[Rfam]
RNA: Potassium channel RNA editing signal
RNA sequence: CUAGGUAUGGUGAUAUGGUGCCGAAGACAAUAGCUGGGAAAAUAUUUGGCUCAAUUUGUUCCCUGAGUGGGGUCUUAGUCAUAGCUCUUCCAGUUCCAGUCAUUGUCUCCAAC
Numbered sequence: 001c002u003a004g005g006u007a008u009g010g011u012g013a014u015a016u017g018g019u020g021c022c023g024a025a026g027a028c029a030a031u032a033g034c035u036g037g038g039a040a041a042a043u044a045u046u047u048g049g050c051u052c053a054a055u056u057u058g059u060u061c062c063c064u065g066a067g068u069g070g071g072g073u074c075u076u077a078g079u080c081a082u083a084g085c086u087c088u089u090c091c092a093g094u095u096c097c098a099g100u101c102a103u104u105g106u107c108u109c110c111a112a113c
Stems, first nucleotide, its partner, number of pairs: 002112001004110002007106004012101003017096002020094002036076004048062002